[Rfam]
RNA: Lysine riboswitch aptamer
Organism: Vagococcus silagei
RNA sequence: UAAAUAUCUAGAGGUGCAAUGAAUCAAGAAGACUUUCGGAGUUUAAGGAAACGAAGAAGAAAGUUGGCGGGGUUGUUGCCGAAAUGUUAGAAAGAGCCUUAUCUUCCUAAUGUUGGGUCUAUGGUGAAUAACUAUGGAACUGUCUCAGUACAUGAUACUGGGUUGCGCUAGGAUUUUG
Numbered sequence: 001u002a003a004a005u006a007u008c009u010a011g012a013g014g015u016g017c018a019a020u021g022a023a024u025c026a027a028g029a030a031g032a033c034u035u036u037c038g039g040a041g042u043u044u045a046a047g048g049a050a051a052c053g054a055a056g057a058a059g060a061a062a063g064u065u066g067g068c069g070g071g072g073u074u075g076u077u078g079c080c081g082a083a084a085u086g087u088u089a090g091a092a093a094g095a096g097c098c099u100u101a102u103c104u105u106c107c108u109a110a111u112g113u114u115g116g117g118u119c120u121a122u123g124g125u126g127a128a129u130a131a132c133u134a135u136g137g138a139a140c141u142g143u144c145u146c147a148g149u150a151c152a153u154g155a156u157a158c159u160g161g162g163u164u165g166c167g168c169u170a171g172g173a174u175u176u177u178g
Base pairs, nucleotide, nucleotide: 007172008171009170010169011168016079017078018077019076020075021074022073024071031065032064033063034062035061036060037059083114084113085112086111087110088109089108090107092105093104094103115141116140118138119137120136121135122134123133124132125131144162145161146160147159148158149157